[Rfam]
Background:
Rfam assigns this 116-nucleotide RNA sequence from Aquibium carbonis to the family "rpsB sRNA". On this family, see Meyer et al., BMC Genomics 2009: "Identification of candidate structured RNAs in the marine organism 'Candidatus Pelagibacter ubique'". It is annotated as a small RNA.

RNA sequence: CACACACGGGCUUUGGUGUCUGUCCGGGAGAAAUCCGGCUGAGACCUCCGGUGGCGUUUCCGAAUGUUCGGGGCGUCGAUGGUCCGUGGAGGCUUGAACCGGAAAGGAAAAGACGA
Numbered sequence: 001c002a003c004a005c006a007c008g009g010g011c012u013u014u015g016g017u018g019u020c021u022g023u024c025c026g027g028g029a030g031a032a033a034u035c036c037g038g039c040u041g042a043g044a045c046c047u048c049c050g051g052u053g054g055c056g057u058u059u060c061c062g063a064a065u066g067u068u069c070g071g072g073g074c075g076u077c078g079a080u081g082g083u084c085c086g087u088g089g090a091g092g093c094u095u096g097a098a099c100c101g102g103a104a105a106g107g108a109a110a111a112g113a114c115g116a
Stems, first nucleotide, its partner, number of pairs: 001091001003089001005088007015046002025037002028035001053077008